[Rfam]
RNA sequence: CAUGCAUGAAUAUGAUGAUAAUUAUGUUGGUAGGGACAUCUGAUUAAACAUGAUGAAUGCCAACUUCUCUGAUCUUUCAUG
Numbered sequence: 001c002a003u004g005c006a007u008g009a010a011u012a013u014g015a016u017g018a019u020a021a022u023u024a025u026g027u028u029g030g031u032a033g034g035g036a037c038a039u040c041u042g043a044u045u046a047a048a049c050a051u052g053a054u055g056a057a058u059g060c061c062a063a064c065u066u067c068u069c070u071g072a073u074c075u076u077u078c079a080u081g
Base pairs, nucleotide, nucleotide: 001081002080003079004078
RNA: Small nucleolar RNA SNORD74